[Rfam]
RNA sequence: AUGAGGUACAGAGCUUAGUUGAUUGGUGAACAGUGAUUGUUUUCCUCUUUGUUCACAGUGGCUAAAUUCUGUACCUGAA
Dot-bracket structure: ..........(((.((((((.....(((((((.................)))))))...)))))).)))..........

The family of this 79-nucleotide sequence from Rynchops niger is "mir-27 microRNA precursor family".
On this family, see Yao et al., J Virol 2008: "MicroRNA profile of Marek's disease virus-transformed T-cell line MSB-1: predominance of virus-encoded microRNAs".
The organism belongs to Rynchops, within Eukaryota.